[Rfam]
RNA sequence: CAACGUGCCCGGGGUCGGUGAAAACCCGAACCGGCGGUAAAGCCCGCGAACCAGCUCAGCUGGCCGAACCGGUGAGAUUCCGGUGCCGACGGUCAUAGUCCGGAUGGGAGAGCACGUGC
Number, nucleotide and partner (000 for none) at each position: 001c000002a000003a117004c116005g115006u114007g113008c112009c000010c110011g000012g000013g000014g000015u000016c028017g027018g026019u000020g000021a000022a000023a000024a000025c000026c018027c017028g016029a000030a099031c098032c088033g087034g047035c046036g045037g044038u000039a000040a000041a000042g086043c085044c037045c036046g035047c034048g000049a000050a000051c063052c062053a000054g000055c000056u000057c000058a000059g000060c000061u000062g052063g051064c000065c000066g000067a000068a084069c083070c082071g081072g080073u000074g000075a000076g000077a000078u000079u000080c072081c071082g070083g069084u068085g043086c042087c033088g032089a000090c102091g101092g100093u000094c000095a000096u000097a000098g031099u030100c092101c091102g090103g000104a000105u000106g000107g000108g000109a000110g010111a000112g008113c007114a006115c005116g004117u003118g000119c000
A member of the RNA family "FMN riboswitch aptamer (RFN element)" from Propionibacterium australiense, 119 nucleotides long.